[Rfam]
RNA: SAM riboswitch aptamer (S box leader)
RNA sequence: UACUUAUCAAGAGCGGCGGAGGGAACUGGCCCAAUGAACCCCGGCAACCUACUUCUUCAGAAGCAAGGUGCUAAAUCCAGCCAAAUGGGAACCAUUUUGGGGAGAUAAGGU
Number, nucleotide and partner (000 for none) at each position: 001u000002a000003c109004u108005u107006a106007u105008c104009a000010a000011g000012a000013g042014c000015g041016g040017c000018g000019g000020a000021g032022g031023g030024a000025a000026c080027u079028g078029g077030c023031c022032c021033a000034a000035u000036g000037a000038a000039c000040c016041c015042c013043g072044g071045c070046a069047a000048c068049c067050u000051a000052c000053u061054u000055c000056u000057u000058c000059a000060g000061a053062a000063g000064c000065a000066a000067g049068g048069u046070g045071c044072u043073a000074a000075a000076u103077c029078c028079a027080g026081c100082c099083a098084a097085a096086u000087g000088g000089g000090a000091a000092c000093c000094a000095u000096u085097u084098u083099g082100g081101g000102g000103a076104g008105a007106u006107a005108a004109g003110g000111u000